[Rfam]
RNA sequence: AGCUGAUCCAAGUGCAGUGGUGUUUACGAUUAAUUGAUCACAACCAGUUACAGAUAUAUUUCUUCUUGACUCUCACUGCUUCAUUUGACUAGCCUUAG
Numbered sequence: 001a002g003c004u005g006a007u008c009c010a011a012g013u014g015c016a017g018u019g020g021u022g023u024u025u026a027c028g029a030u031u032a033a034u035u036g037a038u039c040a041c042a043a044c045c046a047g048u049u050a051c052a053g054a055u056a057u058a059u060u061u062c063u064u065c066u067u068g069a070c071u072c073u074c075a076c077u078g079c080u081u082c083a084u085u086u087g088a089c090u091a092g093c094c095u096u097a098g
Stems, first nucleotide, its partner, number of pairs: 002093004007088002010086002014082001016077005022072001028064002032060002

Rfam assigns this 98-nucleotide RNA sequence from Panthera tigris to the family "Y RNA". From the family's description: Y RNAs are components of the Ro ribonucleoprotein particle (Ro RNP), in association with Ro60 and La proteins. It is annotated as a non-coding RNA gene. The source organism's lineage runs through Eukaryota, Gnathostomata, Laurasiatheria, Felidae and Panthera tigris. The match comes from Rfam's covariance-model search (52 bits).